[Rfam]
The family of this 124-nucleotide RNA from Cognatundibacterium luofuense is "ZMP/ZTP riboswitch aptamer (pfl RNA motif)".
The source organism's lineage runs through Bacteria, Pseudomonadati, Pseudomonadota, Betaproteobacteria and Cognatundibacterium.
The literature on the family includes a 2015 paper in Nat Struct Mol Biol by Jones and Ferre-D'Amare, "Recognition of the bacterial alarmone ZMP through long-distance association of two RNA subdomains".

RNA sequence: UUUGUUUCACGUAACUGGCGCAAGCGCGGACACAGCAAAUUGUUCCUGCGAUAGAUGGAGGAAUCCCAUCAGGAAGCGUGAGAUAUACGGAGUUUUCUCCGUGCCGUACGCCUGGGCAGCCCGA
Numbered sequence: 001u002u003u004g005u006u007u008c009a010c011g012u013a014a015c016u017g018g019c020g021c022a023a024g025c026g027c028g029g030a031c032a033c034a035g036c037a038a039a040u041u042g043u044u045c046c047u048g049c050g051a052u053a054g055a056u057g058g059a060g061g062a063a064u065c066c067c068a069u070c071a072g073g074a075a076g077c078g079u080g081a082g083a084u085a086u087a088c089g090g091a092g093u094u095u096u097c098u099c100c101g102u103g104c105c106g107u108a109c110g111c112c113u114g115g116g117c118a119g120c121c122c123g124a
Stems, first nucleotide, its partner, number of pairs: 003085010015073002017112004055069004102118004